[Rfam]
RNA sequence: GUGUGUAGCUUUUAAGAGGCAGCUAAAAGUGUCUGUCUAGUCGGCAGUAAUGCCGGCAACAUUGUCAAAUUGCGGGAAACUCCUUAUAGCUUAAAACUACCGCGACAAAAUUGAAAAAUUUUGUGCAGCACCAAGGGUAAUGUCCUUGGGGAUGGUAAGAACGUUUUAAGAUUGGACAAUCCGCAGCCAAGUUCUACCAGAAGGUGUGCAACAAACACUUUUUCAUGAACGCAGUUCAGAGACUAGAUGACAAUGGGUGGGUUUUCAUACCUGCUUAAGAUAGAGUCCGUCCCACCUGAAAAGGUGUU
Numbered sequence: 001g002u003g004u005g006u007a008g009c010u011u012u013u014a015a016g017a018g019g020c021a022g023c024u025a026a027a028a029g030u031g032u033c034u035g036u037c038u039a040g041u042c043g044g045c046a047g048u049a050a051u052g053c054c055g056g057c058a059a060c061a062u063u064g065u066c067a068a069a070u071u072g073c074g075g076g077a078a079a080c081u082c083c084u085u086a087u088a089g090c091u092u093a094a095a096a097c098u099a100c101c102g103c104g105a106c107a108a109a110a111u112u113g114a115a116a117a118a119u120u121u122u123g124u125g126c127a128g129c130a131c132c133a134a135g136g137g138u139a140a141u142g143u144c145c146u147u148g149g150g151g152a153u154g155g156u157a158a159g160a161a162c163g164u165u166u167u168a169a170g171a172u173u174g175g176a177c178a179a180u181c182c183g184c185a186g187c188c189a190a191g192u193u194c195u196a197c198c199a200g201a202a203g204g205u206g207u208g209c210a211a212c213a214a215a216c217a218c219u220u221u222u223u224c225a226u227g228a229a230c231g232c233a234g235u236u237c238a239g240a241g242a243c244u245a246g247a248u249g250a251c252a253a254u255g256g257g258u259g260g261g262u263u264u265u266c267a268u269a270c271c272u273g274c275u276u277a278a279g280a281u282a283g284a285g286u287c288c289g290u291c292c293c294a295c296c297u298g299a300a301a302a303g304g305u306g307u308u
Stems, first nucleotide, its partner, number of pairs: 015024002060255005066249002071185006081176003186235002191230004199223009239288001241287004257274006293306005
The family of this 308-nucleotide sequence from Meira miltonrushii is "Group I catalytic intron". Group I catalytic introns are large self-splicing ribozymes. They catalyse their own excision from mRNA, tRNA and rRNA precursors in a wide range of organisms. For this family Rfam cites "Self-splicing of group I introns" (Cech, Annu Rev Biochem, 1990). Rfam links the family to the GO term Group I intron splicing. NCBI's taxonomy places the organism under Eukaryota, Ustilaginomycotina, Exobasidiomycetes, Brachybasidiaceae, Meira.